[Rfam]
RNA: mir-124 microRNA precursor family
Organism: Balaeniceps rex
RNA sequence: CUCUCUCCGUGUUCACAGCGGACCUUGAUUUAAAUGUCCAUACAAUUAAGGCACGCGGUGAAUGCCA
Numbered sequence: 001c002u003c004u005c006u007c008c009g010u011g012u013u014c015a016c017a018g019c020g021g022a023c024c025u026u027g028a029u030u031u032a033a034a035u036g037u038c039c040a041u042a043c044a045a046u047u048a049a050g051g052c053a054c055g056c057g058g059u060g061a062a063u064g065c066c067a
Stems, first nucleotide, its partner, number of pairs: 009065008018056003023051008